The record is a 193-nucleotide RNA sequence from Bacillus anthracis, which matches "Lysine riboswitch aptamer" in Rfam. Taxonomically the source falls in Bacillus anthracis (Bacteria, Bacillota, Bacilli, Bacillus).
RNA sequence: CGAUGAGGUAGAGGUUGCGACUUUUAAGAGUAAAACGGACGAGAUACAGAGAAUGUCUAAGACUCCGUUUGAAAGGAAAAGUUGCCGAAGUUUAUAUUUCUUCUCUGGAAAUAUGAGCUGGGGCUGUGUCUGAAAGGAACAGAACUGUCACGUUUACAAAAUUACCGUGUAAACGUGGGGUGCUAUCUUAACG
Numbered sequence: 001c002g003a004u005g006a007g008g009u010a011g012a013g014g015u016u017g018c019g020a021c022u023u024u025u026a027a028g029a030g031u032a033a034a035a036c037g038g039a040c041g042a043g044a045u046a047c048a049g050a051g052a053a054u055g056u057c058u059a060a061g062a063c064u065c066c067g068u069u070u071g072a073a074a075g076g077a078a079a080a081g082u083u084g085c086c087g088a089a090g091u092u093u094a095u096a097u098u099u100c101u102u103c104u105c106u107g108g109a110a111a112u113a114u115g116a117g118c119u120g121g122g123g124c125u126g127u128g129u130c131u132g133a134a135a136g137g138a139a140c141a142g143a144a145c146u147g148u149c150a151c152g153u154u155u156a157c158a159a160a161a162u163u164a165c166c167g168u169g170u171a172a173a174c175g176u177g178g179g180g181u182g183c184u185a186u187c188u189u190a191a192c193g
Stems, first nucleotide, its partner, number of pairs: 006188006017085009033070007089119012120146002124142004129137002148178011